[Rfam]
A member of the RNA family "L4-Archaeoglobi ribosomal protein leades", 94 nucleotides long. By type it is a cis-regulatory leader. It is one of the family's seed sequences.
RNA sequence: CUGACUACUGUGCUAGGGUGGAUAUUGGCCUUGAUGAGCCAGCCCUCCUCGUUGAAAAUGAAGAAGUUAGCGAGGAAGAACGCAUAACUGUCAG
Number, nucleotide and partner (000 for none) at each position: 001c094002u093003g092004a091005c090006u000007a000008c000009u086010g085011u084012g083013c082014u000015a000016g000017g040018g039019u000020g000021g000022a000023u036024a035025u034026u033027g032028g000029c000030c000031u000032u027033g026034a025035u024036g023037a000038g000039c018040c017041a000042g000043c000044c078045c000046u076047c075048c074049u073050c072051g071052u070053u069054g068055a067056a000057a000058a000059u000060g000061a000062a000063g000064a000065a000066g000067u055068u054069a053070g052071c051072g050073a049074g048075g047076a046077a000078g044079a000080a000081c000082g013083c012084a011085u010086a009087a000088c000089u000090g005091u004092c003093a002094g001